Shown here is an 80-nucleotide RNA from Heliothis virescens, a member of the family "mir-268 microRNA precursor family". Rfam links the family to the GO terms miRNA-mediated post-transcriptional gene silencing and RISC complex. The family's consensus secondary structure was predicted with RNAalifold.

RNA sequence: AUGAUAAAGUAGUAGAAGUAAGAAGUAGUUGUGCACCUUCUGCACAACUACUUCUUACUUCUACUACUUUUUACUGUUAU
Numbered sequence: 001a002u003g004a005u006a007a008a009g010u011a012g013u014a015g016a017a018g019u020a021a022g023a024a025g026u027a028g029u030u031g032u033g034c035a036c037c038u039u040c041u042g043c044a045c046a047a048c049u050a051c052u053u054c055u056u057a058c059u060u061c062u063a064c065u066a067c068u069u070u071u072u073a074c075u076g077u078u079a080u
Base pairs, nucleotide, nucleotide: 008068009067010066011065012064014062015061016060017059018058019057021055022054023053024052025051026050027049028048029047